Shown here is a 216-nucleotide RNA sequence from Nostoc sphaeroides, a member of the family "HNH endonuclease-associated RNA and ORF (HEARO) RNA". The source organism's lineage runs through Bacteria, Bacillati, Cyanophyceae, Nostocales and Nostoc sphaeroides. On this family, see Weinberg et al., Nature 2009: "Exceptional structured noncoding RNAs revealed by bacterial metagenome analysis".
RNA sequence: GCUAUCCGCUAAACAGUGGACAUUAGUGGAUAACUAAUACAAACCAUUGGAGAGGUAGCCAGUCUAAGUCCUUUGCGGACUACGUUAAAAAGGUCACGACACCAAAGAAUACUUUCCAGUUCUCUGCUCUGUCGUUCAGUUUUAAACAUCCGUAUUUAGCUAAAGAAGUGAACUGAACAUGACAAGCCUUUUUAACCUUGACGAGGAAAACUUUAG
Numbered sequence: 001g002c003u004a005u006c007c008g009c010u011a012a013a014c015a016g017u018g019g020a021c022a023u024u025a026g027u028g029g030a031u032a033a034c035u036a037a038u039a040c041a042a043a044c045c046a047u048u049g050g051a052g053a054g055g056u057a058g059c060c061a062g063u064c065u066a067a068g069u070c071c072u073u074u075g076c077g078g079a080c081u082a083c084g085u086u087a088a089a090a091a092g093g094u095c096a097c098g099a100c101a102c103c104a105a106a107g108a109a110u111a112c113u114u115u116c117c118a119g120u121u122c123u124c125u126g127c128u129c130u131g132u133c134g135u136u137c138a139g140u141u142u143u144a145a146a147c148a149u150c151c152g153u154a155u156u157u158a159g160c161u162a163a164a165g166a167a168g169u170g171a172a173c174u175g176a177a178c179a180u181g182a183c184a185a186g187c188c189u190u191u192u193u194a195a196c197c198u199u200g201a202c203g204a205g206g207a208a209a210a211c212u213u214u215a216g
Stems, first nucleotide, its partner, number of pairs: 001059006010028002016021001062202003066198001067081005084196011099132002103126002106123005111212001113210002115207003134178009146169002149166002153162002
Pairs were carried over by alignment from the consensus structure, which is taken from published work. The match comes from Rfam's covariance-model search (115 bits).